The record is a 125-nucleotide sequence from Octodon degus, which matches "Small nucleolar RNA SNORA1" in Rfam.
ACA1 is a member of the H/ACA class of snoRNA that guide the sites of modification of uridines to pseudouridines.
The source organism's lineage runs through Eukaryota, Deuterostomia, Amniota, Mammalia and Octodon.
The family's consensus secondary structure was predicted with PFOLD.
RNA sequence: AUCCUUAUUCUGGAUUAGAAUGGGCACUGUUGAUUGGAGUCUAGAAUUGGUCAGUGUGGCUAAAAUUGAGACAGAGGUCAUGCGUCCAUCACAGUAAAUAUUUAGAGUGGUGACCUGUAAUAUUU
Dot-bracket structure: ..((.(((............(((((.(.........).)))))..........))).)).............(.(((.........((((((..............)))))).))).).......